[Rfam]
Nucleotides: 060
Stems, first nucleotide, its partner, number of pairs: 006054002009051004022043007
Number, partner (000 for none) and nucleotide at each position: 001000a002000a003000a004000g005000c006054g007053g008000g009051c010050c011049g012048g013000g014000c015000c016000c017000c018000u019000c020000u021000g022043a023042c024041g025040a026039g027038u028037g029000a030000a031000u032000g033000c034000a035000a036000g037028c038027a039026u040025u041024c042023g043022u044000g045000a046000u047000g048012u049011c050010g051009g052000a053007c054006c055000g056000c057000a058000u059000c060000g

Rfam assigns this 60-nucleotide RNA sequence from Caulobacter henricii to the family "terC RNA".
The base pairs follow the family's consensus structure, which is taken from published work.
Taxonomically the source falls in Caulobacter (Bacteria, Pseudomonadota, Alphaproteobacteria, Caulobacterales).